[Rfam]
RNA sequence: CGUUGGUUGCCUUGCAGGCGAGACCCUAUCAAUAUUGCCUCUGCUUUUCUGACUUAUAAUGGAGUAGUGCAAUAUUGCUUAUAGGGUCUUGACUCCGAGGGAUG
Numbered sequence: 001c002g003u004u005g006g007u008u009g010c011c012u013u014g015c016a017g018g019c020g021a022g023a024c025c026c027u028a029u030c031a032a033u034a035u036u037g038c039c040u041c042u043g044c045u046u047u048u049c050u051g052a053c054u055u056a057u058a059a060u061g062g063a064g065u066a067g068u069g070c071a072a073u074a075u076u077g078c079u080u081a082u083a084g085g086g087u088c089u090u091g092a093c094u095c096c097g098a099g100g101g102a103u104g
Stems, first nucleotide, its partner, number of pairs: 020090010030077009041067004045062001

Rfam assigns this 104-nucleotide RNA from Esox lucius to the family "mir-454 microRNA precursor family". The family's consensus secondary structure was predicted with RNAalifold. Taxonomically the source falls in Esox (Eukaryota, Teleostei, Esociformes, Esocidae).